[Rfam]
RNA sequence: UUACGAUCUCGUUAUGGCGAGGCUCCUAUACGAACACAAGUUACCGCUCUAAUGGCAUCGAGAGAGGCCACCAAGGGUAAAACAAGCAUUAGCCGAAUCAAGGCAUUGCUAAGGUAACUUCCCCCUGGGGAUACGUUGUAUAGUGCUAAACCCAAGACGUGGGGAUCGGCU
Dot-bracket structure: ....(((((((([..((...(((..((((((((......(((((.(((((.....(.((....)).)......)))))......((((...(((......])))..))))...))))).(((......)))....)))))))).)))....))...))...))))))....
A member of the RNA family "M-box riboswitch aptamer (ykoK leader)" from Serratia fonticola, 171 nucleotides long. From the family's description: M-box riboswitch, also know as ykoK leader is described as a metaloregulatory RNA that sense divalent metals and function as a genetic control element of genes related to divalent metal transport in bacteria. It was first reported upstream of the B.subtilis ykoK gene and genes with related functions in other bacteria. The base pairs follow the family's consensus structure.